RNA sequence: UUGGUUAGAAGUCUAAACAGGCCGCAGCGUGCAAUCCUGCGGCAGGUGUUCGUCACGCCGGCAACGAACACCCGGCCUCUCAACUGAGGCCAACGGGCAGAACAGUCAAC
Numbered sequence: 001u002u003g004g005u006u007a008g009a010a011g012u013c014u015a016a017a018c019a020g021g022c023c024g025c026a027g028c029g030u031g032c033a034a035u036c037c038u039g040c041g042g043c044a045g046g047u048g049u050u051c052g053u054c055a056c057g058c059c060g061g062c063a064a065c066g067a068a069c070a071c072c073c074g075g076c077c078u079c080u081c082a083a084c085u086g087a088g089g090c091c092a093a094c095g096g097g098c099a100g101a102a103c104a105g106u107c108a109a110c
Stems, first nucleotide, its partner, number of pairs: 021043007047070007074091006